[Rfam]
RNA sequence: GGUUGGGCAGGUAACUGCUUCAAGAUGAUAAGCUUAUGGGUGGAGAGCU
Numbered sequence: 001g002g003u004u005g006g007g008c009a010g011g012u013a014a015c016u017g018c019u020u021c022a023a024g025a026u027g028a029u030a031a032g033c034u035u036a037u038g039g040g041u042g043g044a045g046a047g048c049u
Base pairs, nucleotide, nucleotide: 003023004022005021006019007018008017009016010015031049032048033047034046035045037043
Na+ riboswitch aptamer (DUF1646): a 49-nucleotide RNA from Anaerocolumna chitinilytica. The literature on the family includes a 2022 paper in Nat Chem Biol by White et al., "Na(+) riboswitches regulate genes for diverse physiological processes in bacteria".